[Rfam]
RNA sequence: UCAAGGCCGUCUGGAGAGCCGCUACGCCAUGUAGCGCACCGAAGGAGCAAGCCGCAGCCCAUGAGGGGCGGCGGUGAAUCUCUCAGGUACCAAGGACAGGGGGAGCGGC
Numbered sequence: 001u002c003a004a005g006g007c008c009g010u011c012u013g014g015a016g017a018g019c020c021g022c023u024a025c026g027c028c029a030u031g032u033a034g035c036g037c038a039c040c041g042a043a044g045g046a047g048c049a050a051g052c053c054g055c056a057g058c059c060c061a062u063g064a065g066g067g068g069c070g071g072c073g074g075u076g077a078a079u080c081u082c083u084c085a086g087g088u089a090c091c092a093a094g095g096a097c098a099g100g101g102g103g104a105g106c107g108g109c
Base pairs, nucleotide, nucleotide: 007103008102010100011099012098013097020036021035022034023033038088039087040086041084042083045082046081047080051075052074053073054072055071
This 109-nucleotide RNA sequence from Acidovorax sp. CF316 belongs to the Rfam family "Glycine riboswitch aptamer".
The organism belongs to Acidovorax, within Bacteria.
It scores 58 bits against the family's covariance model.